[Rfam]
RNA sequence: GUGAGCUGGUGUGUGGGCUACUCGAAAGAGAGGAAACUCCUCCCUCUAUGCAGGCACUCGGAUCAGAGAUGAUCGGUCGGAGACGGUCGGCUCCGGAACAGAAAAGAUAUCCAGCCUGGACUAAUAAAGCUGUGAUGGUGGAUAGCCUGAGUGUCCUUAACUGGAAUGAAACUGCCGUCCCGAGUGGAGCAAGGCCAAAUUGAGCGUUUAAGUUCCUGCAGCAGCUAAGGUAGGCCGCUAAGCGGAAUCCCACUUAAAACAGAAGGAGGGUUACUGCCAGGACAC
Numbered sequence: 001g002u003g004a005g006c007u008g009g010u011g012u013g014u015g016g017g018c019u020a021c022u023c024g025a026a027a028g029a030g031a032g033g034a035a036a037c038u039c040c041u042c043c044c045u046c047u048a049u050g051c052a053g054g055c056a057c058u059c060g061g062a063u064c065a066g067a068g069a070u071g072a073u074c075g076g077u078c079g080g081a082g083a084c085g086g087u088c089g090g091c092u093c094c095g096g097a098a099c100a101g102a103a104a105a106g107a108u109a110u111c112c113a114g115c116c117u118g119g120a121c122u123a124a125u126a127a128a129g130c131u132g133u134g135a136u137g138g139u140g141g142a143u144a145g146c147c148u149g150a151g152u153g154u155c156c157u158u159a160a161c162u163g164g165a166a167u168g169a170a171a172c173u174g175c176c177g178u179c180c181c182g183a184g185u186g187g188a189g190c191a192a193g194g195c196c197a198a199a200u201u202g203a204g205c206g207u208u209u210a211a212g213u214u215c216c217u218g219c220a221g222c223a224g225c226u227a228a229g230g231u232a233g234g235c236c237g238c239u240a241a242g243c244g245g246a247a248u249c250c251c252a253c254u255u256a257a258a259a260c261a262g263a264a265g266g267a268g269g270g271u272u273a274c275u276g277c278c279a280g281g282a283c284a285c
Stems, first nucleotide, its partner, number of pairs: 001285003006280004011274001013253005021030003035272003039269005044189004049220006056185005061074005075088005089180002094177003110165005118157002137147002193236004203226003
This 285-nucleotide sequence from a Nitrososphaeraceae archaeon belongs to the Rfam family "Archaeal RNase P". Rfam classes the family as a ribozyme. A reference for the family is Brown (1999), "The Ribonuclease P Database", Nucleic Acids Res. About the family: Ribonuclease P (RNase P) is a ubiquitous endoribonuclease, found in archaea, bacteria and eukarya as well as chloroplasts and mitochondria. Its best characterised activity is the generation of mature 5'-ends of tRNAs by cleaving the 5'-leader elements of precursor-tRNAs. Cellular RNase Ps are ribonucleoproteins. RNA from bacterial RNase Ps retains its catalytic activity in the absence of the protein subunit, i.e. it is a ribozyme. Isolated eukaryotic and archaeal RNase P RNA has not been shown to retain its catalytic function, but is still essential for the catalytic activity of the holoenzyme. Although the archaeal and eukaryotic holoenzymes have a much greater protein content than the bacterial ones, the RNA cores from all the three lineages are homologous -- helices corresponding to P1, P2, P3, P4, and P10/11 are common to all cellular RNase P RNAs. Yet, there is considerable sequence variation, particularly among the eukaryotic RNAs.